Glycine riboswitch aptamer: a 106-nucleotide RNA sequence from Rhodoferax sp. OV413. Gene Ontology term of the family: glycine biosynthetic process. Lineage of the source: Bacteria > Pseudomonadati > Betaproteobacteria > Comamonadaceae > Rhodoferax.
RNA sequence: GCGGAGAUACCGGGAGAGACUGCUCCCCUUGCCCUUGCGGCAAGAAAUCAGCGCCGAAGGAGCAACCGCCCCGGAAACUUUCAGGCAAAAGGACCGGUAUCUAAUU
Numbered sequence: 001g002c003g004g005a006g007a008u009a010c011c012g013g014g015a016g017a018g019a020c021u022g023c024u025c026c027c028c029u030u031g032c033c034c035u036u037g038c039g040g041c042a043a044g045a046a047a048u049c050a051g052c053g054c055c056g057a058a059g060g061a062g063c064a065a066c067c068g069c070c071c072c073g074g075a076a077a078c079u080u081u082c083a084g085g086c087a088a089a090a091g092g093a094c095c096g097g098u099a100u101c102u103a104a105u106u
Stems, first nucleotide, its partner, number of pairs: 006101008020051003053086003056082002060080003066074002